[Rfam]
RNA sequence: UGCGUCUCACGUAACUGGCGAAAACCGCGCGCUGCCGCGCCCGGCGAAGGUGGGCAUCCACCGGGGAACGUGGGAUUUUCCAUUUGCCGUUCGCCUGGGCAGCCACC
Numbered sequence: 001u002g003c004g005u006c007u008c009a010c011g012u013a014a015c016u017g018g019c020g021a022a023a024a025c026c027g028c029g030c031g032c033u034g035c036c037g038c039g040c041c042c043g044g045c046g047a048a049g050g051u052g053g054g055c056a057u058c059c060a061c062c063g064g065g066g067a068a069c070g071u072g073g074g075a076u077u078u079u080c081c082a083u084u085u086g087c088c089g090u091u092c093g094c095c096u097g098g099g100c101a102g103c104c105a106c107c
Base pairs, nucleotide, nucleotide: 004076005075006074007073008072009071010070011069012068015065016064017095018094019093020092021091050061051060052059053058084102085101086100087099088098

The family of this 107-nucleotide RNA from Massilia forsythiae is "ZMP/ZTP riboswitch aptamer (pfl RNA motif)". Pairs were carried over by alignment from the consensus structure, which is taken from published work.